[Rfam]
RNA sequence: GCUUUCAACAUCCCCGUUCCAAGUCGAGCCGACGAAGCAGUUUUGCCGGCGCGUCUUUGGAGCUGAAAGC
Numbered sequence: 001g002c003u004u005u006c007a008a009c010a011u012c013c014c015c016g017u018u019c020c021a022a023g024u025c026g027a028g029c030c031g032a033c034g035a036a037g038c039a040g041u042u043u044u045g046c047c048g049g050c051g052c053g054u055c056u057u058u059g060g061a062g063c064u065g066a067a068a069g070c
Base pairs, nucleotide, nucleotide: 001070002069003068004067005066006065007064016063017062018061019060020059021058022057026052028050029049030048031047033045034044035043036042
RNA: nadA riboswitch